[Rfam]
RNA sequence: GAAAAUGAUGAAAUAUAUUUGGAAUCUCGUUCGUCUGAAUUGCUGUUGAGAAAUUAAAUAUCUGAUUUCA
Numbered sequence: 001g002a003a004a005a006u007g008a009u010g011a012a013a014u015a016u017a018u019u020u021g022g023a024a025u026c027u028c029g030u031u032c033g034u035c036u037g038a039a040u041u042g043c044u045g046u047u048g049a050g051a052a053a054u055u056a057a058a059u060a061u062c063u064g065a066u067u068u069c070a
Stems, first nucleotide, its partner, number of pairs: 025051005032045002035042001